[Rfam]
RNA sequence: GGCCCAAAUUUGAAGUAUAGUAGAUUGGUAUGGUCAGCUGAUCCUACUGAUCUACUUUACUUCAAAUUUGGGCCC
Number, nucleotide and partner (000 for none) at each position: 001g074002g073003c072004c071005c070006a069007a068008a067009u066010u000011u064012g063013a062014a061015g060016u059017a058018u000019a056020g055021u054022a053023g052024a000025u050026u049027g048028g047029u046030a045031u000032g043033g042034u041035c040036a000037g000038c000039u000040g035041a034042u033043c032044c000045u030046a029047c028048u027049g026050a025051u000052c023053u022054a021055c020056u019057u000058u017059a016060c015061u014062u013063c012064a011065a000066a009067u008068u007069u006070g005071g004072g003073c002074c001075c000
Rfam assigns this 75-nucleotide sequence from Haemonchus placei to the family "mir-5928 microRNA precursor family". It scores 94 bits against the family's covariance model. The family has 5 seed sequences and 1,672 matches in Rfam 15.1. Rfam links the family to the GO terms RISC complex and miRNA-mediated post-transcriptional gene silencing.